[Rfam]
RNA sequence: CCCAGGGCUCACGGCCUGGGCUAAUCGCUGUCGCCCCGUUGGGGCU
Numbered sequence: 001c002c003c004a005g006g007g008c009u010c011a012c013g014g015c016c017u018g019g020g021c022u023a024a025u026c027g028c029u030g031u032c033g034c035c036c037c038g039u040u041g042g043g044g045c046u
Base pairs, nucleotide, nucleotide: 001020002019003018004017005016006015008013033045034044035043036042037041
RNA: Acido-Lenti-1 RNA